A member of the RNA family "t44 RNA" from Candidatus Thioglobus autotrophicus, 87 nucleotides long. A reference for the family is Tjaden et al. (2002), "Transcriptome analysis of Escherichia coli using high-density oligonucleotide probe arrays", Nucleic Acids Res.
[Rfam]
RNA sequence: CCUAACUCGUUUUAAUGUAUCACACAGCUCGACAUAGUAAUCAGGGUGCUCUCAAAAAAUAGGGUUGAUUAUUAGAAGCUGUGGAAG
Numbered sequence: 001c002c003u004a005a006c007u008c009g010u011u012u013u014a015a016u017g018u019a020u021c022a023c024a025c026a027g028c029u030c031g032a033c034a035u036a037g038u039a040a041u042c043a044g045g046g047u048g049c050u051c052u053c054a055a056a057a058a059a060u061a062g063g064g065u066u067g068a069u070u071a072u073u074a075g076a077a078g079c080u081g082u083g084g085a086a087g
Base pairs, nucleotide, nucleotide: 023083024082025081026080027079028078029077035074036073037072038071039070040069041068042067043066048065049064050063051062052061
Dot-bracket structure: ......................(((((((.....(((((((((....(((((........))))))))))))))..)))))))....